[Rfam]
RNA sequence: CGCAUAUUUCGCCCAGGCGGAGCUCGACCGCCAUCACAAGAAGUGAACGCCUUCAUCGACGCGCACCGCGCGCGUUGCGGGGUCGAGCCGAUCUGCAAUGCCUUGCAGGUCGCCCCG
Dot-bracket structure: ...............(((((.......))))).............................................(((((......((.(((((((....))))))).)))))))
Numbered sequence: 001c002g003c004a005u006a007u008u009u010c011g012c013c014c015a016g017g018c019g020g021a022g023c024u025c026g027a028c029c030g031c032c033a034u035c036a037c038a039a040g041a042a043g044u045g046a047a048c049g050c051c052u053u054c055a056u057c058g059a060c061g062c063g064c065a066c067c068g069c070g071c072g073c074g075u076u077g078c079g080g081g082g083u084c085g086a087g088c089c090g091a092u093c094u095g096c097a098a099u100g101c102c103u104u105g106c107a108g109g110u111c112g113c114c115c116c117g
Stems, first nucleotide, its partner, number of pairs: 016032005078117005089112002092109007